This 87-nucleotide RNA sequence from Triticum aestivum belongs to the Rfam family "MIR1120/MIR1122 microRNA precursor family". Taxonomically the source falls in Triticum (Eukaryota, Spermatophyta, Mesangiospermae, Petrosaviidae). A reference for the family is Yao et al. (2007), "Cloning and characterization of microRNAs from wheat (Triticum aestivum L.)", Genome Biol.
[Rfam]
RNA sequence: AUACUCCCUCCGUUCCAUGAUGUAAGACGUUUUUUGACACUAGUGUAGUGUCAGAAAACGUCUUACAUUAUGGAACGGAGGGAGUAU
Numbered sequence: 001a002u003a004c005u006c007c008c009u010c011c012g013u014u015c016c017a018u019g020a021u022g023u024a025a026g027a028c029g030u031u032u033u034u035u036g037a038c039a040c041u042a043g044u045g046u047a048g049u050g051u052c053a054g055a056a057a058a059c060g061u062c063u064u065a066c067a068u069u070a071u072g073g074a075a076c077g078g079a080g081g082g083a084g085u086a087u
Stems, first nucleotide, its partner, number of pairs: 003085003007081005013075005019069023